[Rfam]
RNA: Staphylococcus sRNA 35 (srn_0335)
Organism: Staphylococcus aureus
RNA sequence: AUUAUCAUUAUAAUAACAUAUUAAUGUUACGCAUUGUAUCUUAAAUUUGUUGUCCUUCCCCAACUUGCAUUGCUUGUAGAAUUUCUUUUCGAAAUUCUCUAUGUUGGGGCCCCGCCAACUUGCAUUGUCUGUAGAAAUUACGGACCCAAUUUCUCUAUGUUGGGGCCCAUCCCCAACUUGCACAUUAUUGCAAGCUGACUUUUCGUCAGCUUCUUUGUUGGGGCCCCGCCAAUAAGCGUUGUAGUGCCUAUUAC
Numbered sequence: 001a002u003u004a005u006c007a008u009u010a011u012a013a014u015a016a017c018a019u020a021u022u023a024a025u026g027u028u029a030c031g032c033a034u035u036g037u038a039u040c041u042u043a044a045a046u047u048u049g050u051u052g053u054c055c056u057u058c059c060c061c062a063a064c065u066u067g068c069a070u071u072g073c074u075u076g077u078a079g080a081a082u083u084u085c086u087u088u089u090c091g092a093a094a095u096u097c098u099c100u101a102u103g104u105u106g107g108g109g110c111c112c113c114g115c116c117a118a119c120u121u122g123c124a125u126u127g128u129c130u131g132u133a134g135a136a137a138u139u140a141c142g143g144a145c146c147c148a149a150u151u152u153c154u155c156u157a158u159g160u161u162g163g164g165g166c167c168c169a170u171c172c173c174c175a176a177c178u179u180g181c182a183c184a185u186u187a188u189u190g191c192a193a194g195c196u197g198a199c200u201u202u203u204c205g206u207c208a209g210c211u212u213c214u215u216u217g218u219u220g221g222g223g224c225c226c227c228g229c230c231a232a233u234a235a236g237c238g239u240u241g242u243a244g245u246g247c248c249u250a251u252u253a254c
Stems, first nucleotide, its partner, number of pairs: 001014005016053002020047001021044004026040001028038004063132002067128003071124003078098008103119005110114001133154007156236001158234006165227001170223003174220004190216001192214001193212001196208004